[Rfam]
RNA sequence: GGGGAGCAUCUAGAUGGCAAGAUGUUGCCUGAUACAAUCUUCCUAUAGAGAAGAACUGUUGUUUCCUGCUUGCAAUGCUUGAGCAAGUACUGCAAGUCUCAAAUAAACAGUGACACAU
Numbered sequence: 001g002g003g004g005a006g007c008a009u010c011u012a013g014a015u016g017g018c019a020a021g022a023u024g025u026u027g028c029c030u031g032a033u034a035c036a037a038u039c040u041u042c043c044u045a046u047a048g049a050g051a052a053g054a055a056c057u058g059u060u061g062u063u064u065c066c067u068g069c070u071u072g073c074a075a076u077g078c079u080u081g082a083g084c085a086a087g088u089a090c091u092g093c094a095a096g097u098c099u100c101a102a103a104u105a106a107a108c109a110g111u112g113a114c115a116c117a118u
Stems, first nucleotide, its partner, number of pairs: 001030003005026007055111003068097007077088003
The record is a 118-nucleotide RNA from Glycine max, which matches "Small nucleolar RNA snoR104" in Rfam. The family has 8 seed sequences and 612 matches in Rfam 15.1. Its family is annotated with RNA processing and nucleolus in the Gene Ontology. For this family Rfam cites "Experimental RNomics: identification of 140 candidates for small non-messenger RNAs in the plant Arabidopsis thaliana" (Marker et al., Curr Biol, 2002). The family's RNA type in Rfam is H/ACA-box small nucleolar RNA. It scores 97 bits against the family's covariance model.